[Rfam]
RNA: MIR5565 microRNA precursor family
Nucleotides: 109
Base pairs, nucleotide, nucleotide: 004108005107006106007105008104009103010102011101012100013099014098016096017095018094019093020092021091023089024088025087026086027085028084030082031081032080035077036076037075038074039073040072041071042070043069045067046066
Number, partner (000 for none) and nucleotide at each position: 001000g002000u003000a004108g005107u006106c007105g008104g009103a010102u011101u012100c013099g014098c015000a016096u017095c018094a019093a020092u021091u022000c023089a024088c025087a026086u027085g028084u029000a030082u031081u032080g033000g034000g035077g036076u037075g038074g039073a040072u041071u042070g043069g044000a045067g046066u047000a048000a049000a050000a051000c052000u053000u054000g055000a056000a057000c058000u059000a060000a061000a062000u063000u064000c065000c066046a067045c068000u069043c070042c071041a072040a073039u074038c075037c076036a077035c078000a079000c080032c081031a082030a083000c084028a085027c086026a087025u088024g089023u090000a091021g092020a093019u094018u095017g096016a097000g098014g099013u100012g101011a102010a103009u104008c105007c106006g107005a108004u109000a